[Rfam]
RNA sequence: GCCCUUUCCAAGCGCCGGCGGGUUUCCUAUAUGGGGGGUGUCGGCUUCGGCCGACUAUGAGGAUAAAUGGUGUCGUGGAAUAGACACAGCGGACCCGGGGGCAGUACCCGGCGGCUCCACCACAAACCCGCGUUUCUUCGAAGGACGCGCGGGUUUCUGACGGGGCCGAACCAGGAUCGACGUGUGUUCAAAGACGAUGCUUUCUUCCGGGCUGAGUAACCCGUUAAAGGCUCAAAACCAAUAAGUGCUAACGAUAACGAAGCACUCGCUCUUGCUGCCUGACCGAUAAGCCUCACGGCCUAAGGUUAGACAAAUAGAACGCGGUUCGGACCGAACCGGGCAACAGAAUCGGAAACC
Numbered sequence: 001g002c003c004c005u006u007u008c009c010a011a012g013c014g015c016c017g018g019c020g021g022g023u024u025u026c027c028u029a030u031a032u033g034g035g036g037g038g039u040g041u042c043g044g045c046u047u048c049g050g051c052c053g054a055c056u057a058u059g060a061g062g063a064u065a066a067a068u069g070g071u072g073u074c075g076u077g078g079a080a081u082a083g084a085c086a087c088a089g090c091g092g093a094c095c096c097g098g099g100g101g102c103a104g105u106a107c108c109c110g111g112c113g114g115c116u117c118c119a120c121c122a123c124a125a126a127c128c129c130g131c132g133u134u135u136c137u138u139c140g141a142a143g144g145a146c147g148c149g150c151g152g153g154u155u156u157c158u159g160a161c162g163g164g165g166c167c168g169a170a171c172c173a174g175g176a177u178c179g180a181c182g183u184g185u186g187u188u189c190a191a192a193g194a195c196g197a198u199g200c201u202u203u204c205u206u207c208c209g210g211g212c213u214g215a216g217u218a219a220c221c222c223g224u225u226a227a228a229g230g231c232u233c234a235a236a237a238c239c240a241a242u243a244a245g246u247g248c249u250a251a252c253g254a255u256a257a258c259g260a261a262g263c264a265c266u267c268g269c270u271c272u273u274g275c276u277g278c279c280u281g282a283c284c285g286a287u288a289a290g291c292c293u294c295a296c297g298g299c300c301u302a303a304g305g306u307u308a309g310a311c312a313a314a315u316a317g318a319a320c321g322c323g324g325u326u327c328g329g330a331c332c333g334a335a336c337c338g339g340g341c342a343a344c345a346g347a348a349u350c351g352g353a354a355a356c357c
Stems, first nucleotide, its partner, number of pairs: 040055005059207005070200007085186003089183003095111005112168007208223004213234003217230001322338004331352003
RNA: Alphaproteobacteria transfer-messenger RNA